[Rfam]
RNA sequence: AGGCGGGUUCGGCUCUGACCUGUCUUCCCUAAGGCUUGACGCUAUGGGGAGGUGGGCUGUGGGUUUCACUGGAAACGGUGGCGCCUCCCGUAUUUGGAAAGGAGUCGGAGGAUAUUGCAU
Numbered sequence: 001a002g003g004c005g006g007g008u009u010c011g012g013c014u015c016u017g018a019c020c021u022g023u024c025u026u027c028c029c030u031a032a033g034g035c036u037u038g039a040c041g042c043u044a045u046g047g048g049g050a051g052g053u054g055g056g057c058u059g060u061g062g063g064u065u066u067c068a069c070u071g072g073a074a075a076c077g078g079u080g081g082c083g084c085c086u087c088c089c090g091u092a093u094u095u096g097g098a099a100a101g102g103a104g105u106c107g108g109a110g111g112a113u114a115u116u117g118c119a120u
Stems, first nucleotide, its partner, number of pairs: 011106006019056011033043003061086004066081006087097002